[Rfam]
Shown here is a 359-nucleotide RNA sequence from Microbacterium sp. JB110, a member of the family "Bacterial RNase P class A".
A search with the family's covariance model found it, with a score of 279 bits.
The family's consensus secondary structure is taken from published work.
Rfam links the family to the GO terms dimeric ribonuclease P complex, ribonuclease P activity and tRNA processing.

RNA sequence: UGGGUCGGCCGGGCGGUCGCGUCGUGCGAUGAGCACGCCGAGGAACGUCCGGGCUCCACAGGGCACGGUGGUGGGUAACGCCCACCCGGAGCAAUCCGCGAGACAGUGCAACAGAAAGCAGACCGCCGGCUCCGGCCGGUAAGGGUGAAACGGUGGUGUAAGAGACCACCAGGGGCCGUGGUGACAUGGCCCGCUGGGUAAACCUCACCGGGAGCAAGACCAGACAGGGGAUGUUGACGCGGCCCGCCGAGUCCCCGGGUAGGUUGCUGGAGCGGCGCGGCAACGCGUCGCGGAGAGAGAUGGCCGCCGACGGAGCGAGAGCUCCCGAACAGAACCCGGCGUACAGGCCGGCCCAUUCG
Numbered sequence: 001u002g003g004g005u006c007g008g009c010c011g012g013g014c015g016g017u018c019g020c021g022u023c024g025u026g027c028g029a030u031g032a033g034c035a036c037g038c039c040g041a042g043g044a045a046c047g048u049c050c051g052g053g054c055u056c057c058a059c060a061g062g063g064c065a066c067g068g069u070g071g072u073g074g075g076u077a078a079c080g081c082c083c084a085c086c087c088g089g090a091g092c093a094a095u096c097c098g099c100g101a102g103a104c105a106g107u108g109c110a111a112c113a114g115a116a117a118g119c120a121g122a123c124c125g126c127c128g129g130c131u132c133c134g135g136c137c138g139g140u141a142a143g144g145g146u147g148a149a150a151c152g153g154u155g156g157u158g159u160a161a162g163a164g165a166c167c168a169c170c171a172g173g174g175g176c177c178g179u180g181g182u183g184a185c186a187u188g189g190c191c192c193g194c195u196g197g198g199u200a201a202a203c204c205u206c207a208c209c210g211g212g213a214g215c216a217a218g219a220c221c222a223g224a225c226a227g228g229g230g231a232u233g234u235u236g237a238c239g240c241g242g243c244c245c246g247c248c249g250a251g252u253c254c255c256c257g258g259g260u261a262g263g264u265u266g267c268u269g270g271a272g273c274g275g276c277g278c279g280g281c282a283a284c285g286c287g288u289c290g291c292g293g294a295g296a297g298a299g300a301u302g303g304c305c306g307c308c309g310a311c312g313g314a315g316c317g318a319g320a321g322c323u324c325c326c327g328a329a330c331a332g333a334a335c336c337c338g339g340c341g342u343a344c345a346g347g348c349c350g351g352c353c354c355a356u357u358c359g
Base pairs, nucleotide, nucleotide: 001355002354003353004352005351006350007349008348009347010346011344012308013307014306015305016304017303018302020040021039023037024036025035026034027033045342046341047340049339050338051337052336053335054214055213056212057211061245062244063243064242066210067209068208069207070206071085072084073083074082075081086100087098088097089096090095101205102204106203107202108199109198123144124143125140126139127138128137129136130135152170153169154168155167156166157165172194173192174191175190176189177188178187179186180185218265219264220263221262227256228255229254230253231252232251239247240246272291273290274289275288276287277286278285279284